[Rfam]
Shown here is an 85-nucleotide RNA from Cavia porcellus, a member of the family "Small nucleolar RNA SNORD105". On this family, see Vitali et al., Nucleic Acids Res 2003: "Identification of 13 novel human modification guide RNAs". Pairs were carried over by alignment from the consensus structure. U105 belongs to the C/D family of snoRNAs. The family is grouped with related families in Rfam's "SNORD105 clan". Lineage of the source: Eukaryota > Opisthokonta > Bilateria > Mammalia > Cavia.

Nucleotides: 085
Base pairs, nucleotide, nucleotide: 002085003084005082008079009078010077
Number, partner (000 for none) and nucleotide at each position: 001000g002085c003084c004000c005082c006000a007000u008079c009078u010077c011000u012000c013000a014000g015000g016000a017000u018000g019000a020000a021000c022000c023000c024000c025000a026000c027000g028000c029000c030000u031000c032000u033000g034000a035000g036000c037000c038000u039000c040000c041000a042000u043000g044000a045000u046000u047000c048000u049000g050000g051000c052000u053000u054000c055000a056000a057000a058000g059000u060000a061000a062000a063000c064000g065000c066000u067000c068000u069000g070000a071000a072000g073000a074000g075000a076000c077010g078009g079008g080000c081000a082005g083000a084003g085002g